[Rfam]
RNA sequence: ACGGAAGCCCGGUAAGGCCUAGGUCGGUCCGGAAGAGAAGGUUCGUCCUCCCGAACCGGGCGCCCAGCACGGUGCCCGGCACCCACGCCGAGUCACAGCCGCGAUAAUGGCAGAAGUGUUGCGGGCCUGCGUAAUUGCGAAAAUUUGACGGUGCCGACGGCCCUUUGGGUGGGGUUGCAACCGAAAGUUUCGCAAGAUCGCCGAGGCCAACCCACGCAACCCAGAGAUGCACGCUUGGUAACCGGGUUCCGUGCUAGCGGGCGGCGGACCGAAUUCGUUCGGGACGUCGCCCGCUUCGCUUA
Dot-bracket structure: ..((..((((((...((...((..(((.((.........)).)))..)).))...)))))).)).(((((((...((((...(((.((...((....(((........)))......((((((((((((((...((((((....((..((((.....(((((((......)))))))..))))..))..))))))...)))..)))))......))))))........))..)).)))...))))...))))))).((((((((((..(((........)))..))))))))))........

The record is a 302-nucleotide RNA sequence from Mycobacterium parmense, which matches "Mycobacterium smegmatis small RNA 1" in Rfam.
A reference for the family is Hnilicova et al. (2014), "Ms1, a novel sRNA interacting with the RNA polymerase core in mycobacteria", Nucleic Acids Res.
The match comes from Rfam's covariance-model search (236 bits).
Gene Ontology term of the family: RNA polymerase binding.
Mycobacterium smegmatis small RNA 1 is highly expressed during stationary phase of growth. Ms1 RNA directly interacts with RNA polymerase (RNAP), but in a different way than 6S, which is present in other bacteria. Ms1 does not require the presence of the main sigma factor for RNAP interaction. There is evidence that Ms1 RNA may function similar to 6S RNA in M. smegmatis which does not have 6S RNA.